[Rfam]
RNA sequence: UCUAUCAGGCCGAUCAAUCUUCCUCUCCCCGACGUCAAUUCUGCCGUCGGAGAGGAUGUUCGGGCCUGCCAAUCGCUGCCUGGCUGGGCGGAACUUCCUCUCCGACGGCAGAAUUGACGUCGGGGAGAGGAAGAUUGAUCGGCCUGAAGCAGAGA
Number, nucleotide and partner (000 for none) at each position: 001u000002c000003u000004a000005u000006c000007a000008g000009g000010c142011c141012g140013a139014u138015c137016a136017a000018u134019c133020u000021u131022c130023c129024u128025c127026u126027c125028c124029c123030c122031g121032a120033c119034g118035u117036c116037a115038a114039u113040u112041c111042u110043g109044c108045c107046g106047u105048c104049g103050g102051a101052g100053a099054g098055g097056a096057u000058g000059u000060u000061c000062g000063g000064g000065c000066c000067u000068g000069c000070c000071a000072a000073u000074c000075g000076c000077u000078g000079c000080c000081u000082g000083g000084c000085u000086g000087g000088g000089c000090g000091g000092a000093a000094c000095u000096u056097c055098c054099u053100c052101u051102c050103c049104g048105a047106c046107g045108g044109c043110a042111g041112a040113a039114u038115u037116g036117a035118c034119g033120u032121c031122g030123g029124g028125g027126a026127g025128a024129g023130g022131a021132a000133g019134a018135u000136u016137g015138a014139u013140c012141g011142g010143c000144c000145u000146g000147a000148a000149g000150c000151a000152g000153a000154g000155a000
Rfam assigns this 155-nucleotide RNA sequence from Geotrypetes seraphini to the family "mraW RNA". Rfam 15.1 lists 851 matches to the family in 821 species.